The family of this 141-nucleotide RNA sequence from Drosophila ananassae is "Small nucleolar RNA psi18S-1377".
The source organism's lineage runs through Eukaryota, Eremoneura, Drosophila, Sophophora and ananassae species complex.
Rfam's curators put it in the seed alignment.
The family's RNA type in Rfam is H/ACA-box small nucleolar RNA.
RNA sequence: CCGUUCUUGUGUUAUUCACUGGAUGUUAUUGUCAAAUCCAGUGAUUGUCAAACAGAACGAAGAUCAAAGCAAACUAAUCACUCCAUAAUGAUGGGCCGACUUAACCCUGGGCCACUUCAUUACUAAAUGAUUGCGACAUUU
Numbered sequence: 001c002c003g004u005u006c007u008u009g010u011g012u013u014a015u016u017c018a019c020u021g022g023a024u025g026u027u028a029u030u031g032u033c034a035a036a037u038c039c040a041g042u043g044a045u046u047g048u049c050a051a052a053c054a055g056a057a058c059g060a061a062g063a064u065c066a067a068a069g070c071a072a073a074c075u076a077a078u079c080a081c082u083c084c085a086u087a088a089u090g091a092u093g094g095g096c097c098g099a100c101u102u103a104a105c106c107c108u109g110g111g112c113c114a115c116u117u118c119a120u121u122a123c124u125a126a127a128u129g130a131u132u133g134c135g136a137c138a139u140u141u
Stems, first nucleotide, its partner, number of pairs: 002059006010050002016044007087121005094113004